This 107-nucleotide sequence from Actinomadura viridis belongs to the Rfam family "Glycine riboswitch aptamer". Lineage of the source: Bacteria > Actinomycetota > Streptosporangiales > Thermomonosporaceae > Actinomadura. It scores 49 bits against the family's covariance model.
RNA sequence: GCACCUCUGGAAAGCAGGCACCGUCCCUCAUGGAGGGCGGGCCUCACCGAAGGGGAAAUCCCGUUUCAGCGGGCGAAUCUCUCAGGUGCCAUGACAGAGGGGGAGAC
Numbered sequence: 001g002c003a004c005c006u007c008u009g010g011a012a013a014g015c016a017g018g019c020a021c022c023g024u025c026c027c028u029c030a031u032g033g034a035g036g037g038c039g040g041g042c043c044u045c046a047c048c049g050a051a052g053g054g055g056a057a058a059u060c061c062c063g064u065u066u067c068a069g070c071g072g073g074c075g076a077a078u079c080u081c082u083c084a085g086g087u088g089c090c091a092u093g094a095c096a097g098a099g100g101g102g103g104a105g106a107c
Stems, first nucleotide, its partner, number of pairs: 002102001004100006016044004046087003049083002053081003060073003